[Rfam]
RNA sequence: CGGCGCAAGCCGGGGAUAGCAGCCCCGACGAGCGCCUAACCACAACCGACUACAGGAGAGUCGAAUAUGGCUGA
Number, nucleotide and partner (000 for none) at each position: 001c000002g036003g035004c034005g033006c032007a000008a000009g029010c000011c027012g026013g025014g024015g023016a000017u000018a000019g000020c000021a000022g000023c015024c014025c013026c012027g011028a000029c009030g000031a000032g006033c005034g004035c003036c002037u000038a000039a000040c070041c069042a068043c000044a000045a000046c000047c063048g062049a061050c060051u059052a000053c000054a000055g000056g000057a000058g000059a051060g050061u049062c048063g047064a000065a000066u000067a000068u042069g041070g040071c000072u000073g000074a000
About this RNA
R1162-like plasmid antisense RNA: a 74-nucleotide sequence from Pollutimonas nitritireducens. NCBI's taxonomy places the organism under Bacteria, Pseudomonadota, Betaproteobacteria, Alcaligenaceae, Pollutimonas. Its family is annotated with plasmid copy number maintenance in the Gene Ontology. Rfam describes the family as follows. The copy-number of the broad host-range plasmid R1162 is controlled by the amounts of two proteins, encoded by cotranscribed genes comprising a region of the plasmid called RepI. RepI is negatively regulated by a 75 base RNA that is complementary to a segment of the RepI message.